[Rfam]
RNA sequence: CCGCGGACGUGCGGCGAGGUCUCCCCCCGCUCAUCGCUUUCUGACGCUCCUUCCCCGGCGCCAGACAGUUACUUCUCCAUUGAGCGGGUGGGGACCUGGCAGUACGUCCCGGGAGCA
Numbered sequence: 001c002c003g004c005g006g007a008c009g010u011g012c013g014g015c016g017a018g019g020u021c022u023c024c025c026c027c028c029g030c031u032c033a034u035c036g037c038u039u040u041c042u043g044a045c046g047c048u049c050c051u052u053c054c055c056c057g058g059c060g061c062c063a064g065a066c067a068g069u070u071a072c073u074u075c076u077c078c079a080u081u082g083a084g085c086g087g088g089u090g091g092g093g094a095c096c097u098g099g100c101a102g103u104a105c106g107u108c109c110c111g112g113g114a115g116c117a
Stems, first nucleotide, its partner, number of pairs: 010104003014100002018096002021093004026088008036069003040065004045060003
mraW RNA: a 117-nucleotide sequence from Carbonactinospora thermoautotrophica. A search with the family's covariance model found it, with a score of 54 bits. The family's RNA type in Rfam is cis-regulatory element. The source organism's lineage runs through Bacteria, Bacillati, Actinomycetes, Kitasatosporales and Carbonactinospora. The base pairs follow the family's consensus structure, which is taken from published work.